[Rfam]
RNA sequence: UGAACAGGUAGAGGUCGCAAAUUUCAUUACCUCUGUGGAGCGAAGCAACGCAUAGAAGCAGGGUUAGGGAAAUUGGCCGAAACGAUUUUUUUCUUGCUUGAAUUAUAUCGUUGGGGCGUAAGUAAAUAGCUUGCGUACUGUCUUAGCACAAGCUAAGGUGCGCUAUGUUUUGU
Numbered sequence: 001u002g003a004a005c006a007g008g009u010a011g012a013g014g015u016c017g018c019a020a021a022u023u024u025c026a027u028u029a030c031c032u033c034u035g036u037g038g039a040g041c042g043a044a045g046c047a048a049c050g051c052a053u054a055g056a057a058g059c060a061g062g063g064u065u066a067g068g069g070a071a072a073u074u075g076g077c078c079g080a081a082a083c084g085a086u087u088u089u090u091u092u093c094u095u096g097c098u099u100g101a102a103u104u105a106u107a108u109c110g111u112u113g114g115g116g117c118g119u120a121a122g123u124a125a126a127u128a129g130c131u132u133g134c135g136u137a138c139u140g141u142c143u144u145a146g147c148a149c150a151a152g153c154u155a156a157g158g159u160g161c162g163c164u165a166u167g168u169u170u171u172g173u
Stems, first nucleotide, its partner, number of pairs: 006168001008166004017077002020074006031063006081112006088105001091102002113139002116136008141158007